[Rfam]
The record is a 108-nucleotide RNA from Candidatus Venteria ishoeyi, which matches "t44 RNA" in Rfam. The literature on the family includes a 2002 paper in Nucleic Acids Res by Tjaden et al., "Transcriptome analysis of Escherichia coli using high-density oligonucleotide probe arrays".
RNA sequence: CAUGUGCAUCAUUUAUUUCUCACACAUAUCGGCACAUAAUUGUGGGUGCCUGGUAUAUUUUUUUAAAUAUACCCUAAGGUUCAGUUAUGGGAUAUGUGGAGGUUUAAC
Numbered sequence: 001c002a003u004g005u006g007c008a009u010c011a012u013u014u015a016u017u018u019c020u021c022a023c024a025c026a027u028a029u030c031g032g033c034a035c036a037u038a039a040u041u042g043u044g045g046g047u048g049c050c051u052g053g054u055a056u057a058u059u060u061u062u063u064u065a066a067a068u069a070u071a072c073c074c075u076a077a078g079g080u081u082c083a084g085u086u087a088u089g090g091g092a093u094a095u096g097u098g099g100a101g102g103u104u105u106a107a108c
Stems, first nucleotide, its partner, number of pairs: 023098008035089008048080004
Background:
Pairs were carried over by alignment from the consensus structure, which was predicted with LocARNA.